[Rfam]
This 81-nucleotide RNA from Lysinibacter cavernae belongs to the Rfam family "ZMP/ZTP riboswitch aptamer (pfl RNA motif)".

RNA sequence: UGGCCGGGUCGUAACUGGCGUACAGAUGGUCACCAUCGGGAAGCGACACUUACAGAUCGGCCGCUCGCCUGGGCCGUGUAA
Numbered sequence: 001u002g003g004c005c006g007g008g009u010c011g012u013a014a015c016u017g018g019c020g021u022a023c024a025g026a027u028g029g030u031c032a033c034c035a036u037c038g039g040g041a042a043g044c045g046a047c048a049c050u051u052a053c054a055g056a057u058c059g060g061c062c063g064c065u066c067g068c069c070u071g072g073g074c075c076g077u078g079u080a081a
Base pairs, nucleotide, nucleotide: 006049008047009046010045011044012043015040016039017069018068019067020066026036027035028034029033058076059075060074061073062072